[Rfam]
RNA sequence: GGCCCAAAUUUGAAGUUGAGUAGUUUAGAAGGAUUAUCUGACUCUACUUAACUAUUCUACUUUGAGUUUGUGCCC
Numbered sequence: 001g002g003c004c005c006a007a008a009u010u011u012g013a014a015g016u017u018g019a020g021u022a023g024u025u026u027a028g029a030a031g032g033a034u035u036a037u038c039u040g041a042c043u044c045u046a047c048u049u050a051a052c053u054a055u056u057c058u059a060c061u062u063u064g065a066g067u068u069u070g071u072g073c074c075c
Base pairs, nucleotide, nucleotide: 001074002073003072005070006069007068008067009066011064012063013062014061015060016059018057019056020055021054022053023052025050027048028047030045032043034041035040
Annotation:
mir-5928 microRNA precursor family: a 75-nucleotide RNA from Haemonchus placei. Taxonomically the source falls in Haemonchus (Eukaryota, Metazoa, Bilateria, Nematoda). It scores 63 bits against the family's covariance model.